[Rfam]
RNA: Bacteroidales small SRP
RNA sequence: UUGCAGCCGGCAAGGCUUAUACGACCAGCUCCUGCUGAACUCCCCCAGGACAGGAAUGUAGCAAGGGUAGGCGGUUGUAGCGGUGCGAUGUAAGUACCUUGCCUUUUU
Numbered sequence: 001u002u003g004c005a006g007c008c009g010g011c012a013a014g015g016c017u018u019a020u021a022c023g024a025c026c027a028g029c030u031c032c033u034g035c036u037g038a039a040c041u042c043c044c045c046c047a048g049g050a051c052a053g054g055a056a057u058g059u060a061g062c063a064a065g066g067g068u069a070g071g072c073g074g075u076u077g078u079a080g081c082g083g084u085g086c087g088a089u090g091u092a093a094g095u096a097c098c099u100u101g102c103c104u105u106u107u108u
Stems, first nucleotide, its partner, number of pairs: 009103007017093005022087002024084002